[Rfam]
This 88-nucleotide sequence from Povalibacter uvarum belongs to the Rfam family "c-di-GMP-I-GGC riboswitch aptamer".
RNA sequence: UGUGCCAAGGGCAAACUCGCCGAAAGGCGAGGACGCAAAACUACCGGUCUAACGGAAGUCAUUUCCCAAGACAGCGGGGUUGCCACGA
Numbered sequence: 001u002g003u004g005c006c007a008a009g010g011g012c013a014a015a016c017u018c019g020c021c022g023a024a025a026g027g028c029g030a031g032g033a034c035g036c037a038a039a040a041c042u043a044c045c046g047g048u049c050u051a052a053c054g055g056a057a058g059u060c061a062u063u064u065c066c067c068a069a070g071a072c073a074g075c076g077g078g079g080u081u082g083c084c085a086c087g088a
Stems, first nucleotide, its partner, number of pairs: 001088001003085002011036002016031006034074001039081004044077003047072003
Its family is annotated with cyclic-di-GMP binding in the Gene Ontology.